A member of the RNA family "Small nucleolar RNA Z159/U59" from Spirodela intermedia, 89 nucleotides long. Rfam links the family to the GO terms RNA processing and nucleolus. Its Rfam clan is "SNORD59 clan". A search with the family's covariance model found it, with a score of 40 bits. A reference for the family is Chen et al. (2003), "The high diversity of snoRNAs in plants: identification and comparative study of 120 snoRNA genes from Oryza sativa", Nucleic Acids Res. It is annotated as a C/D-box small nucleolar RNA.

[Rfam]
RNA sequence: GUCUUCUAUGGCGAUCACAGCAUAACUUUCGUUCUUCCGAGGAGGUCCUCCUCUGUGCGGAGCCUCAUGGAGACCUGAACCGAGGAGAU
Number, nucleotide and partner (000 for none) at each position: 001g000002u000003c087004u086005u085006c084007u000008a000009u000010g000011g000012c000013g000014a000015u000016c000017a000018c000019a000020g000021c000022a000023u000024a000025a000026c000027u000028u000029u000030c000031g000032u000033u000034c000035u000036u000037c000038c000039g000040a000041g000042g000043a000044g000045g000046u000047c000048c000049u000050c000051c000052u000053c000054u000055g000056u000057g000058c000059g000060g000061a000062g000063c000064c000065u000066c000067a000068u000069g000070g000071a000072g000073a000074c000075c000076u000077g000078a000079a000080c000081c000082g000083a000084g006085g005086a004087g003088a000089u000